[Rfam]
RNA sequence: AUCAGAGUAGGUAAAGAGCGUAAAGUGUUAAGCUAUGGGUUGUCGAGCUUAAACGAAGGUCAUUUGACUGCGGUUCUUUAUCGCAACCGCUUUG
Number, nucleotide and partner (000 for none) at each position: 001a000002u000003c094004a093005g092006a000007g000008u000009a000010g082011g081012u080013a079014a078015a077016g076017a075018g074019c072020g071021u070022a000023a000024a000025g054026u053027g000028u052029u051030a050031a049032g048033c047034u046035a000036u000037g000038g088039g087040u086041u085042g084043u000044c000045g000046a034047g033048c032049u031050u030051a029052a028053a026054c025055g000056a000057a000058g069059g068060u067061c066062a000063u000064u000065u000066g061067a060068c059069u058070g021071c020072g019073g000074u018075u017076c016077u015078u014079u013080a012081u011082c010083g000084c042085a041086a040087c039088c038089g000090c000091u000092u005093u004094g003
The record is a 94-nucleotide sequence from Ezakiella coagulans, which matches "THF (Tetrahydrofolate) riboswitch aptamer" in Rfam. The base pairs follow the family's consensus structure, which is taken from published work. A reference for the family is Ames et al. (2010), "A eubacterial riboswitch class that senses the coenzyme tetrahydrofolate", Chem Biol.